This 68-nucleotide RNA sequence from Pangasianodon hypophthalmus belongs to the Rfam family "mir-29 microRNA precursor family". Gene Ontology terms of the family: RISC complex and gene silencing by miRNA. It scores 64 bits against the family's covariance model.
RNA sequence: AGAAGCUGAAUUCAGAUGGUGCCAUAGAGUGAUUCCUAACAUCUAGCACCAUUUGAAAUCAGUGUUCU
Dot-bracket structure: (((((((((.((((.((((((...((((.............)))).)))))).)))).))))).))))

Overview: About the family: This family represents the microRNA (miRNA) precursors mir-29.